[Rfam]
RNA sequence: CUAUGACUAGAAGUCAUGGCGGAAGGAG
Dot-bracket structure: ((((((((...)))))))).........